[Rfam]
RNA sequence: ACCUUCUCAUGAGCUCCUCUUAAACAAACCCAUGUUUAUGUUUGGAUUCGCACGAGAAGCAGAGCCAGUGCACAGGUUAAACAUGCUCACCCAAACCUUGUGGGUUUUUGCACAUGUCUGCUGUGCAACAUUU
Numbered sequence: 001a002c003c004u005u006c007u008c009a010u011g012a013g014c015u016c017c018u019c020u021u022a023a024a025c026a027a028a029c030c031c032a033u034g035u036u037u038a039u040g041u042u043u044g045g046a047u048u049c050g051c052a053c054g055a056g057a058a059g060c061a062g063a064g065c066c067a068g069u070g071c072a073c074a075g076g077u078u079a080a081a082c083a084u085g086c087u088c089a090c091c092c093a094a095a096c097c098u099u100g101u102g103g104g105u106u107u108u109u110g111c112a113c114a115u116g117u118c119u120g121c122u123g124u125g126c127a128a129c130a131u132u133u
Stems, first nucleotide, its partner, number of pairs: 003059006013051002015046003021038005070126006089105005
Annotation: The family of this 133-nucleotide RNA sequence from Cynoglossus semilaevis is "Small nucleolar RNA SNORA75". Its family is annotated with RNA processing and nucleolus in the Gene Ontology. U23 belongs to the H/ACA class of snoRNAs. snoRNAs bind a number of proteins (including dyskerin, Gar1p and Nop10p in the case of the H/ACA class) to form snoRNP complexes. This class are thought to guide the sites of modification of uridines to pseudouridines by forming direct base pairing interactions with substrate RNAs. Targets include ribosomal and spliceosomal RNAs as well as the Trypanosoma spliced leader RNA (SL RNA) as possibly other, still unknown cellular RNAs. U23 can direct the pseudouridylation of U97 in human 18S rRNA (Bachellerie JP, Ganot, P unpublished data). The source organism's lineage runs through Eukaryota, Actinopterygii, Euteleosteomorpha, Cynoglossidae and Cynoglossus. A reference for the family is Bachellerie et al. (2002), "The expanding snoRNA world", Biochimie.